[Rfam]
RNA sequence: UGACCGCGCAGAGGGAGAGACCGGUCCUGCACCGGCGCCGAAGGAGCAACCGCCCCGGAAACUCUCAGGCAAAAGGACCCUGCGCGGUUA
Numbered sequence: 001u002g003a004c005c006g007c008g009c010a011g012a013g014g015g016a017g018a019g020a021c022c023g024g025u026c027c028u029g030c031a032c033c034g035g036c037g038c039c040g041a042a043g044g045a046g047c048a049a050c051c052g053c054c055c056c057g058g059a060a061a062c063u064c065u066c067a068g069g070c071a072a073a074a075g076g077a078c079c080c081u082g083c084g085c086g087g088u089u090a
Stems, first nucleotide, its partner, number of pairs: 006085006013079002021035004037070003040066002044064003050058002
RNA: Glycine riboswitch aptamer